The family of this 60-nucleotide RNA sequence from Cercocebus atys is "U7 small nuclear RNA".
For this family Rfam cites "3' end processing of mouse histone pre-mRNA: evidence for additional base-pairing between U7 snRNA and pre-mRNA" (Spycher et al., Nucleic Acids Res, 1994).
Rfam's curators write: Animal histone pre-mRNAs are spliced by a different mechanism than nuclear pre-mRNAs and self-splicing introns. This processing involves the U7 snRNP, which contains only one RNA species: U7. The 5' end of U7 RNA is thought to base-pair to a conserved spacer element downstream of the cleavage site in histone pre-mRNA. This family contains a number of annotated U7 pseudogenes.
The source organism's lineage runs through Eukaryota, Bilateria, Dipnotetrapodomorpha, Cercopithecoidea and Cercocebus.
Pairs were carried over by alignment from the consensus structure, which was predicted with PFOLD.
RNA sequence: UAGUAUUAGACCUCUUUUAGAAUUUCUAGCAGGUCUUCCAGUUUCCACCAGAAAACCCCA
Dot-bracket structure: ...............................(((.(((..((....))..))).)))...